[Rfam]
RNA sequence: ACGAUGUUCCGCUACAAUGAUUUUCUGUUUGUAAGAGCAUCUG
Numbered sequence: 001a002c003g004a005u006g007u008u009c010c011g012c013u014a015c016a017a018u019g020a021u022u023u024u025c026u027g028u029u030u031g032u033a034a035g036a037g038c039a040u041c042u043g
Stems, first nucleotide, its partner, number of pairs: 003041007013033002016029003
The record is a 43-nucleotide RNA from Falsibacillus pallidus, which matches "Ribosomal protein L19 leader" in Rfam. This family is a putative r-protein leader autoregulatory structure found in B. subtilis and other low-GC Gram-positive bacteria. It is annotated as a cis-regulatory leader.